[Rfam]
RNA sequence: UCACCAUCCCGAGCGGCUGAGAGAUCUGGCUCAGAGACGCCGCAGCAACCCGGAUACGCCGGGUGCUAACGCCAGGACCGAUGGAGU
Number, nucleotide and partner (000 for none) at each position: 001u000002c086003a000004c084005c083006a082007u081008c080009c000010c000011g000012a000013g043014c042015g041016g040017c039018u000019g000020a000021g032022a031023g030024a000025u000026c075027u074028g073029g072030c023031u022032c021033a000034g000035a000036g000037a000038c000039g017040c016041c015042g014043c013044a067045g066046c065047a064048a000049c063050c062051c061052g060053g059054a000055u000056a000057c000058g000059c053060c052061g051062g050063g049064u047065g046066c045067u044068a000069a000070c000071g079072c029073c028074a027075g026076g000077a000078c000079c071080g008081a007082u006083g005084g004085a000086g002087u000
RNA: SAM riboswitch aptamer (S box leader)
Organism: Nesterenkonia sandarakina